Source information: Small nucleolar RNA SNORA47: a 125-nucleotide sequence from Perca flavescens.
RNA sequence: CGGAGGACUGAGAAGGUUGAGCAGCUUGUGCUGUUAUAACUGGUUAUAACCUCCAAUAGUAACUCACAAACCACUCAAUUGAUCAUCUUUGUUAUGAGCUGAUUUGUAGUGUUUGUGAACAAAAC
Numbered sequence: 001c002g003g004a005g006g007a008c009u010g011a012g013a014a015g016g017u018u019g020a021g022c023a024g025c026u027u028g029u030g031c032u033g034u035u036a037u038a039a040c041u042g043g044u045u046a047u048a049a050c051c052u053c054c055a056a057u058a059g060u061a062a063c064u065c066a067c068a069a070a071c072c073a074c075u076c077a078a079u080u081g082a083u084c085a086u087c088u089u090u091g092u093u094a095u096g097a098g099c100u101g102a103u104u105u106g107u108a109g110u111g112u113u114u115g116u117g118a119a120c121a122a123a124a125c
Base pairs, nucleotide, nucleotide: 002054003053004052005051006050015041016040017039018038020035021034022033023032024031025030065117066116067115070113073110074109075108081104082103083102084101085100088098089097090096

NCBI's taxonomy places the organism under Eukaryota, Teleostei, Euteleosteomorpha, Euacanthomorphacea, Perca. The literature on the family includes a 2001 paper in EMBO J by Huttenhofer et al., "RNomics: an experimental approach that identifies 201 candidates for novel, small, non-messenger RNAs in mouse". Rfam 15.1 lists 733 matches to the family in 635 species. Rfam classes the family as an H/ACA-box small nucleolar RNA.